Rfam assigns this 69-nucleotide sequence from Odontophorus gujanensis to the family "Small nucleolar RNA SNORD82". By type it is a C/D-box small nucleolar RNA. The base pairs follow the family's consensus structure, which was predicted with PFOLD. About the family: snoRNA U82 or Z25 is found in both humans and mice. A reference for the family is Galardi et al. (2002), "Purified box C/D snoRNPs are able to reproduce site-specific 2'-O-methylation of target RNA in vitro", Mol Cell Biol.
RNA sequence: AGCACAAAUGAUGAUUGUAAGGGACUUAAUACUGAAAUAUGAUGUUAUUUUCAAGCAAAACUGAUGUGC
Numbered sequence: 001a002g003c004a005c006a007a008a009u010g011a012u013g014a015u016u017g018u019a020a021g022g023g024a025c026u027u028a029a030u031a032c033u034g035a036a037a038u039a040u041g042a043u044g045u046u047a048u049u050u051u052c053a054a055g056c057a058a059a060a061c062u063g064a065u066g067u068g069c
Stems, first nucleotide, its partner, number of pairs: 002069005